Selenocysteine transfer RNA: an 88-nucleotide RNA sequence from Cyanidioschyzon merolae.
RNA sequence: GCCCCGCUGAUCUCUGGCGGGUGCCGGGCUCGGCCUUCAAAGCCGAUGGACGCCGCGAGGCGUCGCCGUUCGACUCGGCCUGCGGGGC
Numbered sequence: 001g002c003c004c005c006g007c008u009g010a011u012c013u014c015u016g017g018c019g020g021g022u023g024c025c026g027g028g029c030u031c032g033g034c035c036u037u038c039a040a041a042g043c044c045g046a047u048g049g050a051c052g053c054c055g056c057g058a059g060g061c062g063u064c065g066c067c068g069u070u071c072g073a074c075u076c077g078g079c080c081u082g083c084g085g086g087g088c
Stems, first nucleotide, its partner, number of pairs: 001088007009080001012028001014027005029048001030046005050063005065079004
Rfam links the family to the GO term triplet codon-amino acid adaptor activity. Its Rfam clan is "tRNA clan". Lineage of the source: Eukaryota > Bangiophyceae > Cyanidiales > Cyanidioschyzon > Cyanidioschyzon merolae. A search with the family's covariance model found it, with a score of 61 bits.